The family of this 136-nucleotide sequence from Medicago truncatula is "small nucleolar RNA snoR134". On this family, see Chen and Wu, Nucleic Acids Res 2009: "Mining small RNA sequencing data: a new approach to identify small nucleolar RNAs in Arabidopsis".

[Rfam]
RNA sequence: CAGCACGAUGCCUCCCGGGCUUCUCUGAUAUAUCUAAUGACUCGAAAGCCCUAAGCACGUGCUAGAUCUUCGCCGUUCGUGUUGCAAUUCAGCCUAGUUUUCACGGCUAAUCUGUGUCAAAGUAAUGGCUAAAUCU
Numbered sequence: 001c002a003g004c005a006c007g008a009u010g011c012c013u014c015c016c017g018g019g020c021u022u023c024u025c026u027g028a029u030a031u032a033u034c035u036a037a038u039g040a041c042u043c044g045a046a047a048g049c050c051c052u053a054a055g056c057a058c059g060u061g062c063u064a065g066a067u068c069u070u071c072g073c074c075g076u077u078c079g080u081g082u083u084g085c086a087a088u089u090c091a092g093c094c095u096a097g098u099u100u101u102c103a104c105g106g107c108u109a110a111u112c113u114g115u116g117u118c119a120a121a122g123u124a125a126u127g128g129c130u131a132a133a134u135c136u
Stems, first nucleotide, its partner, number of pairs: 003062005010056002017051005022045002072129006080119002083116004092107003
It is annotated as an H/ACA-box small nucleolar RNA. NCBI's taxonomy places the organism under Eukaryota, Fabaceae, Papilionoideae, Trifolieae, Medicago. The family's consensus secondary structure was predicted with RNAalifold.